[Rfam]
RNA sequence: GUCCUAUAGUGUUCAUCGCCGUAGACAGUAGGUGCAAAGCUUAAACGCGUAAGCGGCCUACCGAGGUAAGAGUGUGCUAGUUUUAAUUACGCAUGCCUUCCCUCUGCGGGAAGGCAUGUUUUGUUGGGGAGUA
Numbered sequence: 001g002u003c004c005u006a007u008a009g010u011g012u013u014c015a016u017c018g019c020c021g022u023a024g025a026c027a028g029u030a031g032g033u034g035c036a037a038a039g040c041u042u043a044a045a046c047g048c049g050u051a052a053g054c055g056g057c058c059u060a061c062c063g064a065g066g067u068a069a070g071a072g073u074g075u076g077c078u079a080g081u082u083u084u085a086a087u088u089a090c091g092c093a094u095g096c097c098u099u100c101c102c103u104c105u106g107c108g109g110g111a112a113g114g115c116a117u118g119u120u121u122u123g124u125u126g127g128g129g130a131g132u133a
Base pairs, nucleotide, nucleotide: 028061029060030059031058032057033056034040035039092118093117094116095115096114097113098112099111100110101109